[Rfam]
RNA sequence: CUGACACCUCGUUCGGUGAGGCUUCUGCACGGAUACAGGCCACUGAUCUUACGACGUCGAGAGACGCCCAGGGUCAGGACAGGUCUCCCCGGCCUAAGGGGUGACCCAAAGUGGCUUCCCGCAAGGGAUACGACGUGCAGUGCCGAAGCUCUGACGUGGAGGUGUCGG
Number, nucleotide and partner (000 for none) at each position: 001c000002u000003g000004a000005c164006a163007c162008c161009u160010c159011g155012u154013u097014c000015g150016g149017u148018g000019a000020g144021g143022c142023u000024u000025c140026u139027g138028c137029a136030c135031g134032g000033a000034u000035a000036c000037a000038g000039g115040c114041c113042a112043c111044u000045g075046a074047u073048c072049u071050u000051a000052c000053g000054a000055c066056g065057u064058c063059g000060a000061g000062a000063g058064a057065c056066g055067c000068c000069c000070a000071g049072g048073g047074u046075c045076a000077g000078g000079a000080c000081a000082g106083g105084u104085c103086u000087c000088c100089c099090c098091g000092g000093c000094c000095u000096a000097a013098g090099g089100g088101g000102u000103g085104a084105c083106c082107c000108a000109a000110a000111g043112u042113g041114g040115c039116u000117u128118c127119c126120c000121g000122c000123a000124a000125g000126g119127g118128a117129u000130a000131c000132g000133a000134c031135g030136u029137g028138c027139a026140g025141u000142g022143c021144c020145g000146a000147a000148g017149c016150u015151c000152u000153g000154a012155c011156g000157u000158g000159g010160a009161g008162g007163u006164g005165u000166c000167g000168g000